This 241-nucleotide part of an RNA from Schizosaccharomyces octosporus belongs to the Rfam family "Eukaryotic large subunit ribosomal RNA". Pairs were carried over by alignment from the consensus structure, which is taken from published work. It is one of the family's seed sequences.
RNA sequence: CAUUGGAAACCAGUCUUACCGGGUGAGAUCAGUUGCCUUUUCGCAAGGCGAUGCACUCUGAACCUGUUGGUAGGUCAGCAUCAGUUUCUGGGGUGGAAAAAGGAUCUAGGAAGGUACUUUUCGGGUUCUGCCUGAAGAGGGUUAUAGCCUAGGUUGUAAUACAUCCACUGGGGACUGAGGACUGCGAUCUUAUGGUCAAGGAUGUUGACAUAAUGGUUUUCAAUGACCGUCUUGAACACGG
Numbered sequence: 001c002a003u004u005g006g007a008a009a010c011c012a013g014u015c016u017u018a019c020c021g022g023g024u025g026a027g028a029u030c031a032g033u034u035g036c037c038u039u040u041u042c043g044c045a046a047g048g049c050g051a052u053g054c055a056c057u058c059u060g061a062a063c064c065u066g067u068u069g070g071u072a073g074g075u076c077a078g079c080a081u082c083a084g085u086u087u088c089u090g091g092g093g094u095g096g097a098a099a100a101a102g103g104a105u106c107u108a109g110g111a112a113g114g115u116a117c118u119u120u121u122c123g124g125g126u127u128c129u130g131c132c133u134g135a136a137g138a139g140g141g142u143u144a145u146a147g148c149c150u151a152g153g154u155u156g157u158a159a160u161a162c163a164u165c166c167a168c169u170g171g172g173g174a175c176u177g178a179g180g181a182c183u184g185c186g187a188u189c190u191u192a193u194g195g196u197c198a199a200g201g202a203u204g205u206u207g208a209c210a211u212a213a214u215g216g217u218u219u220u221c222a223a224u225g226a227c228c229g230u231c232u233u234g235a236a237c238a239c240g241g
Stems, first nucleotide, its partner, number of pairs: 001225012017072006076207007227241004

Its family is annotated with ribosome and structural constituent of ribosome in the Gene Ontology.